[Rfam]
A member of the RNA family "Small nucleolar RNA SNORD73" from Pogona vitticeps, 67 nucleotides long. Pairs were carried over by alignment from the consensus structure, which was predicted with PFOLD. By type it is a C/D-box small nucleolar RNA. Its family is annotated with nucleolus and RNA processing in the Gene Ontology. The family has 25 seed sequences and 769 matches in Rfam 15.1.
RNA sequence: AAUGAAUGAUGACAAUUUGUUUCGGUCCCAAAUGAGUCAAUGAUUAUUCUUUCCUAAUUCUGACAUU
Numbered sequence: 001a002a003u004g005a006a007u008g009a010u011g012a013c014a015a016u017u018u019g020u021u022u023c024g025g026u027c028c029c030a031a032a033u034g035a036g037u038c039a040a041u042g043a044u045u046a047u048u049c050u051u052u053c054c055u056a057a058u059u060c061u062g063a064c065a066u067u
Stems, first nucleotide, its partner, number of pairs: 001067004